[Rfam]
RNA sequence: GGUCACGAGUGACAGCGACCACGGCCCCGGCCCGCUGUCCGGCAACCCUCCGUCGUGGCGGGGUGCCCCGGGUGAUGACCGGGUCGCGAGCAGCAGGGCUCGCGGCAAGCGCGGCCG
Numbered sequence: 001g002g003u004c005a006c007g008a009g010u011g012a013c014a015g016c017g018a019c020c021a022c023g024g025c026c027c028c029g030g031c032c033c034g035c036u037g038u039c040c041g042g043c044a045a046c047c048c049u050c051c052g053u054c055g056u057g058g059c060g061g062g063g064u065g066c067c068c069c070g071g072g073u074g075a076u077g078a079c080c081g082g083g084u085c086g087c088g089a090g091c092a093g094c095a096g097g098g099c100u101c102g103c104g105g106c107a108a109g110c111g112c113g114g115c116c117g
Base pairs, nucleotide, nucleotide: 001080002079003078004077009040011039012038013037014036015035016034023032024031041067042066043065046063047062048061050058051057083106084105085104086103087102088101089100090099091098
Shown here is a 117-nucleotide RNA from Streptomyces sp. 8K308, a member of the family "SAM (S-adenosyl methionine) riboswitch aptamer". Pairs were carried over by alignment from the consensus structure, which is taken from published work. The match comes from Rfam's covariance-model search (95 bits).